The record is a 121-nucleotide RNA sequence, which matches "pan motif" in Rfam. By type it is a cis-regulatory element. It scores 64 bits against the family's covariance model.
[Rfam]
RNA sequence: AGGGUGGUAUCUGAAUAGGGUCAAUUAAACUUUAGUAUCCUAAGAAGAACUACACCAAGUUUUAAAAAAUCAUUUUAAAAAAUGUGUUCUGCCUUGAUCCUAUAAGGACUGGGACAGAGGA
Numbered sequence: 001a002g003g004g005u006g007g008u009a010u011c012u013g014a015a016u017a018g019g020g021u022c023a024a025u026u027a028a029a030c031u032u033u034a035g036u037a038u039c040c041u042a043a044g045a046a047g048a049a050c051u052a053c054a055c056c057a058a059g060u061u062u063u064a065a066a067a068a069a070u071c072a073u074u075u076u077a078a079a080a081a082a083u084g085u086g087u088u089c090u091g092c093c094u095u096g097a098u099c100c101u102a103u104a105a106g107g108a109c110u111g112g113g114a115c116a117g118a119g120g121a
Stems, first nucleotide, its partner, number of pairs: 002056002004053005010048002089117003092113003096109001098108003